[Rfam]
RNA: small nucleolar RNA snoR126
RNA sequence: GGGCAGUGAUGACUGACUAAACGUUUCUCGAUACUGAAAAUUGAAUUACCAUAUUCAGUGACCAAUAAUCCUUUGAUGACCUUAUUUGUGCGUGUCUGAGCCUU
Numbered sequence: 001g002g003g004c005a006g007u008g009a010u011g012a013c014u015g016a017c018u019a020a021a022c023g024u025u026u027c028u029c030g031a032u033a034c035u036g037a038a039a040a041u042u043g044a045a046u047u048a049c050c051a052u053a054u055u056c057a058g059u060g061a062c063c064a065a066u067a068a069u070c071c072u073u074u075g076a077u078g079a080c081c082u083u084a085u086u087u088g089u090g091c092g093u094g095u096c097u098g099a100g101c102c103u104u
Stems, first nucleotide, its partner, number of pairs: 001103004